[Rfam]
Record summary
The family of this 319-nucleotide sequence from Spizella passerina is "7SK RNA". Taxonomically the source falls in Spizella (Eukaryota, Bilateria, Chordata, Vertebrata). The family's consensus secondary structure is taken from published work. 7SK was discovered as an abundant small nuclear RNA in the mid-70s but a possible function has only recently been suggested. Two independent studies have found that 7SK RNA binds the CDK9/cyclin T complex (known as elongation factor P-TEFb). P-TEFb activates transcription by phosphorylating the C-terminal domain of RNA polymerase II. This process is negatively regulated by the 7SK RNP. The secondary structure of 7SK RNA shown here was proposed by Wasserman and Steitz on the basis of chemical modification and enzymatic cleavage experiments. This family contains a number of annotated pseudogenes and 7SK derived repeats.
RNA sequence: GGAUGGUAACCUGGCUGUGGGAUCUGAUAUGCCACUGAUUGCAGGGAUUGAUCUGACUGAUCUGCCUAGCUUAGGCAGGUUCCCUCUCUUUCUAACACUCCAUAUAUGUUCCUCUUAAUGAUGUGUGCUUGGUUAAUGAGUAGAGCCUCCCCAGCAGACCAUGAUUCAUUAGUCAAAGUGGUGUGGUAGCUGUGCUCCGCUUCUGGAAGCUCUAAGUAAGCUCAAAGCCCACUUGUAGAUAAAUGUAGGGAAAUCAAGUGCCCAAUACUGAAGACACAUCCAAAUGAGAAGCUGCAUACACCAGUCUGCCAGUGGCUUU
Numbered sequence: 001g002g003a004u005g006g007u008a009a010c011c012u013g014g015c016u017g018u019g020g021g022a023u024c025u026g027a028u029a030u031g032c033c034a035c036u037g038a039u040u041g042c043a044g045g046g047a048u049u050g051a052u053c054u055g056a057c058u059g060a061u062c063u064g065c066c067u068a069g070c071u072u073a074g075g076c077a078g079g080u081u082c083c084c085u086c087u088c089u090u091u092c093u094a095a096c097a098c099u100c101c102a103u104a105u106a107u108g109u110u111c112c113u114c115u116u117a118a119u120g121a122u123g124u125g126u127g128c129u130u131g132g133u134u135a136a137u138g139a140g141u142a143g144a145g146c147c148u149c150c151c152c153a154g155c156a157g158a159c160c161a162u163g164a165u166u167c168a169u170u171a172g173u174c175a176a177a178g179u180g181g182u183g184u185g186g187u188a189g190c191u192g193u194g195c196u197c198c199g200c201u202u203c204u205g206g207a208a209g210c211u212c213u214a215a216g217u218a219a220g221c222u223c224a225a226a227g228c229c230c231a232c233u234u235g236u237a238g239a240u241a242a243a244u245g246u247a248g249g250g251a252a253a254u255c256a257a258g259u260g261c262c263c264a265a266u267a268c269u270g271a272a273g274a275c276a277c278a279u280c281c282a283a284a285u286g287a288g289a290a291g292c293u294g295c296a297u298a299c300a301c302c303a304g305u306c307u308g309c310c311a312g313u314g315g316c317u318u319u
Stems, first nucleotide, its partner, number of pairs: 001101003005093002008089001013086002019083008028074001030069001033064002037062004041057001109163001113158002115132004120128001133154002140150001142148001189259003196252001198250001200248002203245001211239003216236005282319003288310001291305004